The record is a 76-nucleotide RNA sequence from Sphingomonas sp. CL5.1, which matches "Makes More Granules Regulator RNA (mmgR)" in Rfam.
The family has 87 seed sequences and 1,791 matches in Rfam 15.1.
The pairing is the family consensus, mapped onto this sequence.
The organism belongs to Sphingomonas, within Bacteria.
Clan: suhB sRNA clan.
The family's RNA type in Rfam is small RNA.
RNA sequence: GGGUCGGGCCUUUCAGGCAUCCUCUCCUAAAAACUUUCAAGGCCGGUCUCACGACCGGCCUUUCUUUUUGCCGCGA
Numbered sequence: 001g002g003g004u005c006g007g008g009c010c011u012u013u014c015a016g017g018c019a020u021c022c023u024c025u026c027c028u029a030a031a032a033a034c035u036u037u038c039a040a041g042g043c044c045g046g047u048c049u050c051a052c053g054a055c056c057g058g059c060c061u062u063u064c065u066u067u068u069u070g071c072c073g074c075g076a
Base pairs, nucleotide, nucleotide: 008018009017010016011015040061041060042059043058044057045056046055047054048053